The record is a 121-nucleotide sequence from Glycine soja, which matches "MIR1520 microRNA precursor family" in Rfam.
A search with the family's covariance model found it, with a score of 111 bits.
The organism belongs to Glycine subgen. Soja, within Eukaryota.
The family has 18 seed sequences and 1,934 matches in Rfam 15.1.
RNA sequence: UUCUUAUUGGAUGAUGACCGUGAGUGUCAUGUUCUAAUUGGAUGUCAACUCCAUGAAAGAUGAAAUGCAUUGUUGUUUUUAUUGACCAAUCAGAAAAUGACACACGUGACCAUCAUCAUCU
Numbered sequence: 001u002u003c004u005u006a007u008u009g010g011a012u013g014a015u016g017a018c019c020g021u022g023a024g025u026g027u028c029a030u031g032u033u034c035u036a037a038u039u040g041g042a043u044g045u046c047a048a049c050u051c052c053a054u055g056a057a058a059g060a061u062g063a064a065a066u067g068c069a070u071u072g073u074u075g076u077u078u079u080u081a082u083u084g085a086c087c088a089a090u091c092a093g094a095a096a097a098u099g100a101c102a103c104a105c106g107u108g109a110c111c112a113u114c115a116u117c118a119u120c121u
Stems, first nucleotide, its partner, number of pairs: 020110002023107001024103002028099003032095004037090003